Rfam assigns this 109-nucleotide sequence from Yersinia pestis to the family "t44 RNA".
It is one of the family's seed sequences.
[Rfam]
RNA sequence: CUCAUAUGUGUAAAUAACACACACGUGUCGACACAUACACCGGGGUGCCCUAAAGUUUUUGAUUGUUAUCAAUCGCUUAUGGGGUCGGUGUUAUGGGACACGUGGAGGC
Numbered sequence: 001c002u003c004a005u006a007u008g009u010g011u012a013a014a015u016a017a018c019a020c021a022c023a024c025g026u027g028u029c030g031a032c033a034c035a036u037a038c039a040c041c042g043g044g045g046u047g048c049c050c051u052a053a054a055g056u057u058u059u060u061g062a063u064u065g066u067u068a069u070c071a072a073u074c075g076c077u078u079a080u081g082g083g084g085u086c087g088g089u090g091u092u093a094u095g096g097g098a099c100a101c102g103u104g105g106a107g108g109c
Stems, first nucleotide, its partner, number of pairs: 022104008034095004039089004047085005
Rfam describes the family as follows. This family consists of a number of bacterial RNA genes of between 135 and 170 bases in length.
Pairs were carried over by alignment from the consensus structure, which was predicted with LocARNA.